[Rfam]
RNA sequence: AUGUUCACUUGUCGGGGAAGGGUGAGAACCUUCGUUCAAGGUUCGACUCGAGCGAAAGCGAGAGAACAUUGCCGCAGGCAAUGGCCCGAAGGGUGAGGAGCGAAGCGACGAAUAAUCCUUCCCCCACCACCA
Numbered sequence: 001a002u003g004u005u006c007a008c009u010u011g012u013c014g015g016g017g018a019a020g021g022g023u024g025a026g027a028a029c030c031u032u033c034g035u036u037c038a039a040g041g042u043u044c045g046a047c048u049c050g051a052g053c054g055a056a057a058g059c060g061a062g063a064g065a066a067c068a069u070u071g072c073c074g075c076a077g078g079c080a081a082u083g084g085c086c087c088g089a090a091g092g093g094u095g096a097g098g099a100g101c102g103a104a105g106c107g108a109c110g111a112a113u114a115a116u117c118c119u120u121c122c123c124c125c126a127c128c129a130c131c132a
Stems, first nucleotide, its partner, number of pairs: 015123007023115001033095002036093002042090004049060002067083006
RNA: RtT RNA